[Rfam]
RNA sequence: ACCACCCUUUUCUUGAGGUAGUGCUACUAAUGAAUGAGGAGUGAGGGCAGUACUGCUGCUAAUGCCUAUACAACAUGCCCACAUCAACUAGAGCUUUGCUCUACUUUGGUGCAAUUUUUGGAAAG
Numbered sequence: 001a002c003c004a005c006c007c008u009u010u011u012c013u014u015g016a017g018g019u020a021g022u023g024c025u026a027c028u029a030a031u032g033a034a035u036g037a038g039g040a041g042u043g044a045g046g047g048c049a050g051u052a053c054u055g056c057u058g059c060u061a062a063u064g065c066c067u068a069u070a071c072a073a074c075a076u077g078c079c080c081a082c083a084u085c086a087a088c089u090a091g092a093g094c095u096u097u098g099c100u101c102u103a104c105u106u107u108g109g110u111g112c113a114a115u116u117u118u119u120g121g122a123a124a125g
Stems, first nucleotide, its partner, number of pairs: 006018004021056003026051003034042002082111005089103006
Rfam assigns this 125-nucleotide RNA from Prolemur simus to the family "U4atac minor spliceosomal RNA".
The base pairs follow the family's consensus structure, which is taken from published work.
Gene Ontology terms of the family: spliceosomal tri-snRNP complex assembly, U4atac snRNP and pre-mRNA 5'-splice site binding.
Rfam's curators write: U4atac is an essential component of the minor U12-type spliceosome complex which is required for removal of the rarer class of eukaryotic introns (AT-AC, U12-type).
Clan: U4 clan.
The match comes from Rfam's covariance-model search (72 bits).
Rfam classes the family as a spliceosomal small nuclear RNA.